[Rfam]
RNA sequence: AGCAAAAUGAUGAUAUAUUUUGAUCUGAAAUUAGUGUGGAUAACACAUAUGGUCUUCAAAGUUCUCUGAUUGCU
Numbered sequence: 001a002g003c004a005a006a007a008u009g010a011u012g013a014u015a016u017a018u019u020u021u022g023a024u025c026u027g028a029a030a031u032u033a034g035u036g037u038g039g040a041u042a043a044c045a046c047a048u049a050u051g052g053u054c055u056u057c058a059a060a061g062u063u064c065u066c067u068g069a070u071u072g073c074u
Base pairs, nucleotide, nucleotide: 001074002073003072004071005070

Small nucleolar RNA R160: a 74-nucleotide RNA sequence from Elaeis guineensis. Pairs were carried over by alignment from the consensus structure. Rfam describes the family as follows. snoR160 is a C/D box small nucleolar RNA, which acts as a methylation guide for 25S ribosomal RNA in plants. snoR160 has been alternatively named snoZ270 in rice. For this family Rfam cites "The high diversity of snoRNAs in plants: identification and comparative study of 120 snoRNA genes from Oryza sativa" (Chen et al., Nucleic Acids Res, 2003). A search with the family's covariance model found it, with a score of 74 bits. Its family is annotated with nucleolus and RNA processing in the Gene Ontology. The family's RNA type in Rfam is C/D-box small nucleolar RNA.